Annotation: Shown here is a 91-nucleotide RNA sequence from Ameiurus melas, a member of the family "Small nucleolar RNA SNORD21". On this family, see Qu et al., Nucleic Acids Res 1994: "U21, a novel small nucleolar RNA with a 13 nt. complementarity to 28S rRNA, is encoded in an intron of ribosomal protein L5 gene in chicken and mammals". Rfam links the family to the GO terms RNA processing and nucleolus. NCBI's taxonomy places the organism under Eukaryota, Teleostomi, Clupeocephala, Siluroidei, Ameiurus. Pairs were carried over by alignment from the consensus structure, which was predicted with PFOLD.

[Rfam]
RNA sequence: GCUUGAUGAUGAUUCCUUUCAAACUGAGCAAACUGUAGUUGGUCCUUCAUUUGCACAGUUGAUGUAGUUUCAAGACGGGACUGAAAGCAGC
Numbered sequence: 001g002c003u004u005g006a007u008g009a010u011g012a013u014u015c016c017u018u019u020c021a022a023a024c025u026g027a028g029c030a031a032a033c034u035g036u037a038g039u040u041g042g043u044c045c046u047u048c049a050u051u052u053g054c055a056c057a058g059u060u061g062a063u064g065u066a067g068u069u070u071c072a073a074g075a076c077g078g079g080a081c082u083g084a085a086a087g088c089a090g091c
Base pairs, nucleotide, nucleotide: 001088002087003086004085